[Rfam]
RNA sequence: AAAAAAAGCUUCUGUUGUUAGUGGCACAUGUAGGGCAGCUUGAUUGCUCUAUGUGGGGAAUUGACAUCAAGAGAUUUCAGAAGCAUGAUUUUUUGGUACCUGGGCAGCUAAGUGAUCAUUAGUCCUGGCACCUGC
Numbered sequence: 001a002a003a004a005a006a007a008g009c010u011u012c013u014g015u016u017g018u019u020a021g022u023g024g025c026a027c028a029u030g031u032a033g034g035g036c037a038g039c040u041u042g043a044u045u046g047c048u049c050u051a052u053g054u055g056g057g058g059a060a061u062u063g064a065c066a067u068c069a070a071g072a073g074a075u076u077u078c079a080g081a082a083g084c085a086u087g088a089u090u091u092u093u094u095g096g097u098a099c100c101u102g103g104g105c106a107g108c109u110a111a112g113u114g115a116u117c118a119u120u121a122g123u124c125c126u127g128g129c130a131c132c133u134g135c
Stems, first nucleotide, its partner, number of pairs: 008084005013026005027055012057078006102133003107129004112125001114124003
RNA: U11 spliceosomal RNA